[Rfam]
RNA: mir-71 microRNA precursor family
RNA sequence: UUUUUGUGAAAGACAUGGGUAGUGAGAUGUGAUUUGAGAUAAUCAUCUCACUACCUUGUCUUUCACGGAAAA
Numbered sequence: 001u002u003u004u005u006g007u008g009a010a011a012g013a014c015a016u017g018g019g020u021a022g023u024g025a026g027a028u029g030u031g032a033u034u035u036g037a038g039a040u041a042a043u044c045a046u047c048u049c050a051c052u053a054c055c056u057u058g059u060c061u062u063u064c065a066c067g068g069a070a071a072a
Base pairs, nucleotide, nucleotide: 008064009063010062011061012060013059014058015057017056018055019054021052022051023050024049025048026047027046028045029044